Rfam assigns this 171-nucleotide RNA sequence from Medicago truncatula to the family "MIR2619 microRNA precursor family".
The family's consensus secondary structure was predicted with RNAalifold.
Its family is annotated with RISC complex and miRNA-mediated post-transcriptional gene silencing in the Gene Ontology.
Lineage of the source: Eukaryota > Viridiplantae > Fabales > Papilionoideae > Medicago.
[Rfam]
RNA sequence: AAACCGUCCCCUAAGUUUUGCAACUGUAGCAGUUUUGGCCCCCAAGAUCAAUUUUUGGUAAAAAUAAAUAACACGUGACACCUCACGUAGGGUGUCAGGUCAGCGUAUACCGAGUCAAAAUUGGCCUUAGGGGCCAAAGCUGUCACAAAUGCAAAACUUAAGGGAUAGUUU
Numbered sequence: 001a002a003a004c005c006g007u008c009c010c011c012u013a014a015g016u017u018u019u020g021c022a023a024c025u026g027u028a029g030c031a032g033u034u035u036u037g038g039c040c041c042c043c044a045a046g047a048u049c050a051a052u053u054u055u056u057g058g059u060a061a062a063a064a065u066a067a068a069u070a071a072c073a074c075g076u077g078a079c080a081c082c083u084c085a086c087g088u089a090g091g092g093u094g095u096c097a098g099g100u101c102a103g104c105g106u107a108u109a110c111c112g113a114g115u116c117a118a119a120a121u122u123g124g125c126c127u128u129a130g131g132g133g134c135c136a137a138a139g140c141u142g143u144c145a146c147a148a149a150u151g152c153a154a155a156a157c158u159u160a161a162g163g164g165a166u167a168g169u170u171u
Base pairs, nucleotide, nucleotide: 001171002170004168006166007165008164012160013159014158015157016156017155018154019153020152021151022150025147026146027145029143030142031141032140033139034138035137036136037135038134039133040132041131042130044128045127073100074099076097077096078095079094080093081092082091
Dot-bracket structure: ((.(.(((...(((((((((((..(((.((((((((((((((.((...........................((.(((((((........))))))).))..........................)).)))))))))))))).)))..)))))))))))...))).).))